[Rfam]
RNA sequence: AAGGAUAAGAGUUUGAUCCUGGCUCAGGACGAACGCUGGCGGCGUGCCUAACACAUGCAAGUUGAGCGGAGAUAUAUGGAGCUUGCUUUAUAUAACUUAGCAGCGAACGGGUGAGUAACACGUAGAUAAUCUAUCCUAUACUGGGGGAUAGCCCGAUGAAAGUUGGAUUAAUACCGCAUAUAGCUAUAUAGUUGCAUGAUUAUGUAGUGAAAGAUUUAUUGGUAUAGGAGGAGUCUGCGGCACAUUAGCUAGUAGGUGAGGUAAAGGCUUACCUAGGCGACGAUGUGUAGCCGGUCUGAGAGGAUGAACGGCCACAAUGGAACUGAGACACGGUCCAUACUCCUACGGGAGGCAGCAGUGGGGAAUAUUGCACAAUGGGGGAAACCCUGAUGCAGCAACGCCGCGUGAGUGAAGAAGGUUUUCGGAUUGUAAAGCUCUGUUAGCAGGGAAGAGGAAGGACGGUACCUGCAGAGGAAGCCACGGCUAACUACGUGCCAGCAGCCGCGGUAAUACGUAGGUGGCAAGCGUUGUUCGGAAUAACUG
Numbered sequence: 001a002a003g004g005a006u007a008a009g010a011g012u013u014u015g016a017u018c019c020u021g022g023c024u025c026a027g028g029a030c031g032a033a034c035g036c037u038g039g040c041g042g043c044g045u046g047c048c049u050a051a052c053a054c055a056u057g058c059a060a061g062u063u064g065a066g067c068g069g070a071g072a073u074a075u076a077u078g079g080a081g082c083u084u085g086c087u088u089u090a091u092a093u094a095a096c097u098u099a100g101c102a103g104c105g106a107a108c109g110g111g112u113g114a115g116u117a118a119c120a121c122g123u124a125g126a127u128a129a130u131c132u133a134u135c136c137u138a139u140a141c142u143g144g145g146g147g148a149u150a151g152c153c154c155g156a157u158g159a160a161a162g163u164u165g166g167a168u169u170a171a172u173a174c175c176g177c178a179u180a181u182a183g184c185u186a187u188a189u190a191g192u193u194g195c196a197u198g199a200u201u202a203u204g205u206a207g208u209g210a211a212a213g214a215u216u217u218a219u220u221g222g223u224a225u226a227g228g229a230g231g232a233g234u235c236u237g238c239g240g241c242a243c244a245u246u247a248g249c250u251a252g253u254a255g256g257u258g259a260g261g262u263a264a265a266g267g268c269u270u271a272c273c274u275a276g277g278c279g280a281c282g283a284u285g286u287g288u289a290g291c292c293g294g295u296c297u298g299a300g301a302g303g304a305u306g307a308a309c310g311g312c313c314a315c316a317a318u319g320g321a322a323c324u325g326a327g328a329c330a331c332g333g334u335c336c337a338u339a340c341u342c343c344u345a346c347g348g349g350a351g352g353c354a355g356c357a358g359u360g361g362g363g364a365a366u367a368u369u370g371c372a373c374a375a376u377g378g379g380g381g382a383a384a385c386c387c388u389g390a391u392g393c394a395g396c397a398a399c400g401c402c403g404c405g406u407g408a409g410u411g412a413a414g415a416a417g418g419u420u421u422u423c424g425g426a427u428u429g430u431a432a433a434g435c436u437c438u439g440u441u442a443g444c445a446g447g448g449a450a451g452a453g454g455a456a457g458g459a460c461g462g463u464a465c466c467u468g469c470a471g472a473g474g475a476a477g478c479c480a481c482g483g484c485u486a487a488c489u490a491c492g493u494g495c496c497a498g499c500a501g502c503c504g505c506g507g508u509a510a511u512a513c514g515u516a517g518g519u520g521g522c523a524a525g526c527g528u529u530g531u532u533c534g535g536a537a538u539a540a541c542u543g
Stems, first nucleotide, its partner, number of pairs: 009025005027533004032529006039404006045397002047362001052360003056357003061104003066101002069098002075092007111315003121239007130232002135228007143177001145175002151168001153166005183208007191200003213220002241287003248278003253275008290312004294305004317338005340351004368394001370393003376389005407437004417428004441474001443469005451460001477522005488517005498505002

This 543-nucleotide part of an RNA from Candidatus Arthromitus sp. SFB-mouse belongs to the Rfam family "Bacterial small subunit ribosomal RNA".
The base pairs follow the family's consensus structure, which is taken from published work.
Its family is annotated with ribosome and structural constituent of ribosome in the Gene Ontology.
The literature on the family includes a 2001 paper in Science by Yusupov et al., "Crystal structure of the ribosome at 5.5 A resolution".